A member of the RNA family "mir-44 microRNA precursor family" from Caenorhabditis angaria, 84 nucleotides long.
A reference for the family is de Wit et al. (2009), "Repertoire and evolution of miRNA genes in four divergent nematode species", Genome Res.
[Rfam]
RNA sequence: CAAAACCCACGCUGGAUGUGCUCGUUAGUCAUAUUUUCAACUCAAAAAAAUUAUGACUAGAGACACAUUCAGCUUGGAUUUUUG
Number, nucleotide and partner (000 for none) at each position: 001c000002a000003a000004a000005a079006c000007c077008c076009a075010c000011g000012c072013u071014g070015g069016a068017u067018g066019u065020g064021c000022u063023c062024g000025u000026u000027a058028g057029u056030c055031a054032u053033a052034u000035u000036u000037u000038c000039a000040a000041c000042u000043c000044a000045a000046a000047a000048a000049a000050a000051u000052u033053a032054u031055g030056a029057c028058u027059a000060g000061a000062g023063a022064c020065a019066c018067a017068u016069u015070c014071a013072g012073c000074u000075u009076g008077g007078a000079u005080u000081u000082u000083u000084g000

The base pairs follow the family's consensus structure, which was predicted with RNAalifold. Rfam links the family to the GO terms miRNA-mediated post-transcriptional gene silencing and RISC complex.